[Rfam]
RNA sequence: GAUCAAAUGAUGAGGAAAAAACUGCAACAUAAGGAAUCGAUUUGUUUCGUGAUUACUUGUAUUUAAGUCUCUGAUGAAC
Numbered sequence: 001g002a003u004c005a006a007a008u009g010a011u012g013a014g015g016a017a018a019a020a021a022c023u024g025c026a027a028c029a030u031a032a033g034g035a036a037u038c039g040a041u042u043u044g045u046u047u048c049g050u051g052a053u054u055a056c057u058u059g060u061a062u063u064u065a066a067g068u069c070u071c072u073g074a075u076g077a078a079c
Stems, first nucleotide, its partner, number of pairs: 001079001003078001004076002034048003038044001
Shown here is a 79-nucleotide RNA from Theobroma cacao, a member of the family "Small nucleolar RNA Z199". A search with the family's covariance model found it, with a score of 62 bits. Rfam 15.1 lists 953 matches to the family in 222 species. Rfam's curators write: snoZ199 is a C/D box small nucleolar RNA, which acts as a methylation guide RNA for sites on 18S and 25S rRNA. Rice snoZ199 is reported to be homologous to Arabidopsis snoR13. Its family is annotated with RNA processing and nucleolus in the Gene Ontology.